[Rfam]
RNA sequence: AGGAUUCCUGCAGUGGCCACCUGAGAUCACAUGUGGACACCCUCACAUAUUCCCAUUGGCUGUGUUUUCAUGUGUUCUCAGGUCGCCCCUGCUGGGCUUUC
Number, nucleotide and partner (000 for none) at each position: 001a000002g000003g000004a000005u000006u000007c095008c094009u000010g000011c091012a090013g089014u000015g000016g086017c085018c000019a083020c000021c000022u000023g079024a078025g077026a076027u000028c074029a073030c072031a071032u070033g000034u000035g000036g000037a000038c000039a000040c000041c000042c000043u000044c000045a000046c000047a000048u000049a000050u000051u000052c000053c000054c000055a000056u000057u000058g000059g000060c000061u000062g000063u000064g000065u000066u000067u000068u000069c000070a032071u031072g030073u029074g028075u000076u026077c025078u024079c023080a000081g000082g000083u019084c000085g017086c016087c000088c000089c013090u012091g011092c000093u000094g008095g007096g000097c000098u000099u000100u000101c000

Background:
This 101-nucleotide sequence from Hevea brasiliensis belongs to the Rfam family "MIR398 microRNA precursor family". The literature on the family includes a 2004 paper in Mol Cell by Jones-Rhoades and Bartel, "Computational identification of plant microRNAs and their targets, including a stress-induced miRNA". Its family is annotated with miRNA-mediated post-transcriptional gene silencing and RISC complex in the Gene Ontology. Taxonomically the source falls in Hevea (Eukaryota, Viridiplantae, Streptophyta, Streptophytina). Pairs were carried over by alignment from the consensus structure, which was predicted with WAR.